The family of this 96-nucleotide RNA sequence from Paenibacillus psychroresistens is "c-di-GMP-I riboswitch aptamer". NCBI's taxonomy places the organism under Bacteria, Bacillati, Bacilli, Paenibacillaceae, Paenibacillus.
[Rfam]
Nucleotides: 096
Base pairs, nucleotide, nucleotide: 012037013036017032018031019030020029021028022027040090041089042088043087045086046085047084048081049080050079055075056074057073058072059071060070061069062068
Number, partner (000 for none) and nucleotide at each position: 001000a002000c003000a004000a005000u006000g007000a008000a009000a010000a011000g012037g013036c014000a015000a016000a017032c018031u019030u020029a021028u022027u023000g024000a025000a026000a027022g028021a029020u030019a031018a032017g033000g034000a035000c036013g037012c038000a039000a040090a041089g042088c043087u044000g045086a046085g047084g048081g049080u050079c051000u052000a053000a054000g055075a056074u057073a058072a059071u060070c061069u062068a063000a064000g065000c066000g067000u068062u069061a070060g071059a072058u073057u074056a075055u076000a077000a078000u079050g080049a081048u082000a083000g084047c085046c086045u087043g088042g089041c090040u091000g092000c093000c094000c095000a096000u
Rfam's curators write: GEMM was predicted in a large-scale screen for bacterial structured RNA regulatory elements. Genes associated with GEMM are involved in a diverse array of functions, including chemotaxis regulation, signal transduction, secretion and chitin.